[Rfam]
RNA sequence: GGGCCGCGGCGGCGGCGGGAGUCUUCGAGGCCACGUGGGGAGGCGGGAGGGGCUGGGCACGCGCCCGCUGUCUGCCGGGAGCCCGGAUUGGUACA
Numbered sequence: 001g002g003g004c005c006g007c008g009g010c011g012g013c014g015g016c017g018g019g020a021g022u023c024u025u026c027g028a029g030g031c032c033a034c035g036u037g038g039g040g041a042g043g044c045g046g047g048a049g050g051g052g053c054u055g056g057g058c059a060c061g062c063g064c065c066c067g068c069u070g071u072c073u074g075c076c077g078g079g080a081g082c083c084c085g086g087a088u089u090g091g092u093a094c095a
Stems, first nucleotide, its partner, number of pairs: 003053003007049001011032003